Shown here is an 81-nucleotide RNA from Roseateles sp. DAIF2, a member of the family "ZMP/ZTP riboswitch aptamer (pfl RNA motif)". Taxonomically the source falls in Roseateles (Bacteria, Betaproteobacteria, Burkholderiales, Sphaerotilaceae). The family's consensus secondary structure is taken from published work. On this family, see Ren et al., Structure 2015: "Global RNA Fold and Molecular Recognition for a pfl Riboswitch Bound to ZMP, a Master Regulator of One-Carbon Metabolism".

Nucleotides: 081
Stems, first nucleotide, its partner, number of pairs: 004054009015043001017069005028039004060074003
Number, partner (000 for none) and nucleotide at each position: 001000g002000c003000c004054g005053g006052a007051u008050c009049g010048c011047a012046u013000g014000a015043c016000u017069g018068g019067c020066g021065a022000c023000g024000c025000g026000a027000g028039g029038u030037g031036g032000a033000g034000c035000c036031c037030c038029a039028c040000c041000g042000u043015g044000g045000a046012g047011u048010g049009c050008g051007a052006u053005c054004c055000c056000g057000g058000c059000c060074g061073c062072c063000g064000c065021u066020c067019g068018c069017c070000u071000g072062g073061g074060c075000a076000u077000c078000a079000c080000g081000a